[Rfam]
RNA sequence: AGCGGCCAAAGGGAGCAGACUGUAAAUCUGCCGUCAUCGACUUCGAAGGUUCGAUUCGAGCGCAGCGAGAAAGCGUUGCCGUAGGCAACGACCCGAAGGGCGAAGCGCGCAGCGCUGAGUCAUCCUUCCCCCACCACCA
Numbered sequence: 001a002g003c004g005g006c007c008a009a010a011g012g013g014a015g016c017a018g019a020c021u022g023u024a025a026a027u028c029u030g031c032c033g034u035c036a037u038c039g040a041c042u043u044c045g046a047a048g049g050u051u052c053g054a055u056u057c058g059a060g061c062g063c064a065g066c067g068a069g070a071a072a073g074c075g076u077u078g079c080c081g082u083a084g085g086c087a088a089c090g091a092c093c094c095g096a097a098g099g100g101c102g103a104a105g106c107g108c109g110c111a112g113c114g115c116u117g118a119g120u121c122a123u124c125c126u127u128c129c130c131c132c133a134c135c136a137c138c139a
Base pairs, nucleotide, nucleotide: 013130015128017126018125021122038102039101041100042099050097051096052095053094057067058066074090075089076088077087078086079085
RNA: RtT RNA
Organism: Salmonella enterica